Rfam assigns this 307-nucleotide RNA sequence from Molossus molossus to the family "Mason-Pfizer monkey virus packaging signal".
Rfam classes the family as a cis-regulatory element.
Rfam's curators write: This family represents a group of sequences that are related to the Mason-Pfizer monkey virus (MPMV) packaging signal.
The literature on the family includes a 1995 paper in J Virol by Harrison et al., "Secondary structure model of the Mason-Pfizer monkey virus 5' leader sequence: identification of a structural motif common to a variety of retroviruses".
The source organism's lineage runs through Eukaryota, Vertebrata, Teleostomi, Laurasiatheria and Molossus.
A search with the family's covariance model found it, with a score of 99 bits.

RNA sequence: UGGCGCCCAACGUGGGGCUCCAGCACGGGGGAUCCAGUGAAGGACGCUGUUCGAGUGACCGGCAGAAAGGAAAGCAAAGGAAAAGAAAGGAAAGCAAAGGAAAAGAAAGGAAAAGAAAAGAGGGAACGACGUGGGAACCUGCUGCGUCUGCACCCCUCGGGUAAGUGAACGGCGAUUAUGGGUCAAGCAUUGAGCCAAGAUAAGAUGUUCGUUGAAGGACUAGGAAAGGCUAUCAAGGCACGAGGAGUAAAGGUGAAAAUUAUGCAUUUGUAUGAGUAUUUUGAUUAUAUUAAGGAAGUUUGCCCUU
Numbered sequence: 001u002g003g004c005g006c007c008c009a010a011c012g013u014g015g016g017g018c019u020c021c022a023g024c025a026c027g028g029g030g031g032a033u034c035c036a037g038u039g040a041a042g043g044a045c046g047c048u049g050u051u052c053g054a055g056u057g058a059c060c061g062g063c064a065g066a067a068a069g070g071a072a073a074g075c076a077a078a079g080g081a082a083a084a085g086a087a088a089g090g091a092a093a094g095c096a097a098a099g100g101a102a103a104a105g106a107a108a109g110g111a112a113a114a115g116a117a118a119a120g121a122g123g124g125a126a127c128g129a130c131g132u133g134g135g136a137a138c139c140u141g142c143u144g145c146g147u148c149u150g151c152a153c154c155c156c157u158c159g160g161g162u163a164a165g166u167g168a169a170c171g172g173c174g175a176u177u178a179u180g181g182g183u184c185a186a187g188c189a190u191u192g193a194g195c196c197a198a199g200a201u202a203a204g205a206u207g208u209u210c211g212u213u214g215a216a217g218g219a220c221u222a223g224g225a226a227a228g229g230c231u232a233u234c235a236a237g238g239c240a241c242g243a244g245g246a247g248u249a250a251a252g253g254u255g256a257a258a259a260u261u262a263u264g265c266a267u268u269u270g271u272a273u274g275a276g277u278a279u280u281u282u283g284a285u286u287a288u289a290u291u292a293a294g295g296a297a298g299u300u301u302g303c304c305c306u307u
Stems, first nucleotide, its partner, number of pairs: 006031003012026003120158002122155002127150001130146005166185003170182001173180002192233001194230003241283005247277002251269005292307004